[Rfam]
A member of the RNA family "Trypanosomatid snoRNA TB11Cs4H2" from Trypanosoma vivax, 64 nucleotides long. On this family, see Liang et al., RNA 2005: "A genome-wide analysis of C/D and H/ACA-like small nucleolar RNAs in Trypanosoma brucei reveals a trypanosome-specific pattern of rRNA modification". The organism belongs to Trypanosoma vivax, within Eukaryota. It is annotated as an H/ACA-box small nucleolar RNA. Its family is annotated with nucleolus and RNA processing in the Gene Ontology. A search with the family's covariance model found it, with a score of 70 bits.
RNA sequence: AAGGUGCGCAUUGAGACCCACCGCGCCGCGACGAUGGGUGUGUGGGAGCAUCAGCGCACCGAGA
Numbered sequence: 001a002a003g004g005u006g007c008g009c010a011u012u013g014a015g016a017c018c019c020a021c022c023g024c025g026c027c028g029c030g031a032c033g034a035u036g037g038g039u040g041u042g043u044g045g046g047a048g049c050a051u052c053a054g055c056g057c058a059c060c061g062a063g064a
Base pairs, nucleotide, nucleotide: 003060004059005058006057008055017046018045019044020043021042022040023039024038026036
Dot-bracket structure: ..((((.(........((((((((.(.........).))).)))))........).))))....